Nucleotides: 134
Base pairs, nucleotide, nucleotide: 008083009082010081011080012079013028014027015026016025017024029054030053031052032051033050034049035048036047037046039044055078056077057076058075059074060073061072102132103131104130105129107128108127109126110125111124113123114122115121
Number, partner (000 for none) and nucleotide at each position: 001000a002000a003000a004000a005000a006000g007000g008083g009082u010081a011080c012079u013028c014027g015026c016025c017024a018000c019000u020000u021000c022000a023000a024017u025016g026015g027014c028013g029054c030053g031052u032051u033050g034049g035048g036047g037046c038000a039044c040000a041000c042000a043000c044039g045000c046037g047036c048035u049034c050033c051032a052031g053030c054029g055078g056077g057076g058075u059074a060073u061072g062000g063000c064000a065000a066000u067000c068000a069000a070000g071000a072061c073060a074059u075058a076057c077056c078055c079012a080011g081010u082009a083008u084000g085000u086000a087000a088000u089000u090000u091000u092000u093000g094000a095000g096000a097000a098000c099000g100000a101000g102132a103131g104130g105129c106000u107128g108127u109126u110125a111124g112000c113123u114122g115121c116000c117000a118000c119000a120000c121115g122114c123113a124111c125110u126109g127108a128107c129105g130104c131103c132102u133000c134000c

A member of the RNA family "U11 spliceosomal RNA" from Trichogramma brassicae, 134 nucleotides long. Gene Ontology terms of the family: U11 snRNP, mRNA 5'-splice site recognition and pre-mRNA 5'-splice site binding. Clan: U1 clan. It is annotated as a spliceosomal small nuclear RNA. Taxonomically the source falls in Trichogramma (Eukaryota, Mandibulata, Insecta, Eumetabola).